[Rfam]
This 50-nucleotide sequence from Muricoccus nepalensis belongs to the Rfam family "Xanthine riboswitch aptamer (NMT1 RNA)". The organism belongs to Muricoccus, within Bacteria. The base pairs follow the family's consensus structure, which is taken from published work.
RNA sequence: GGCGCGAGUAGAAGCGGUCAGGGCAGAGCGCCCCGGGCAUUGCUCCGGCA
Numbered sequence: 001g002g003c004g005c006g007a008g009u010a011g012a013a014g015c016g017g018u019c020a021g022g023g024c025a026g027a028g029c030g031c032c033c034c035g036g037g038c039a040u041u042g043c044u045c046c047g048g049c050a
Base pairs, nucleotide, nucleotide: 006045007044008043009042010041015035018037019036021033022032023031024030